[Rfam]
RNA sequence: UCAAAUGGAAGGCAAUCUAAGUUCGCCGCGUCCUGCGGCAAUUAUUGCAUGACCCAACAUCGUGUUGG
Numbered sequence: 001u002c003a004a005a006u007g008g009a010a011g012g013c014a015a016u017c018u019a020a021g022u023u024c025g026c027c028g029c030g031u032c033c034u035g036c037g038g039c040a041a042u043u044a045u046u047g048c049a050u051g052a053c054c055c056a057a058c059a060u061c062g063u064g065u066u067g068g
Base pairs, nucleotide, nucleotide: 012048013047014046015045016044025039026038027037028036029035054068055067056066057065058064